[Rfam]
RNA sequence: GGGUCAAUGAUGAGAACUCAUACUGCCCUGAAGGAGAGGAUGACUUAAAAAUCAUGCUCAAUAUGUUCACGCUGAGGCCC
Numbered sequence: 001g002g003g004u005c006a007a008u009g010a011u012g013a014g015a016a017c018u019c020a021u022a023c024u025g026c027c028c029u030g031a032a033g034g035a036g037a038g039g040a041u042g043a044c045u046u047a048a049a050a051a052u053c054a055u056g057c058u059c060a061a062u063a064u065g066u067u068c069a070c071g072c073u074g075a076g077g078c079c080c
Stems, first nucleotide, its partner, number of pairs: 001080004005074002008071002
Small nucleolar RNA SNORD115: an 80-nucleotide sequence from Phyllostomus discolor. NCBI's taxonomy places the organism under Eukaryota, Vertebrata, Gnathostomata, Chiroptera, Phyllostomus. The literature on the family includes a 2000 paper in Proc Natl Acad Sci U S A by Cavaille et al., "Identification of brain-specific and imprinted small nucleolar RNA genes exhibiting an unusual genomic organization".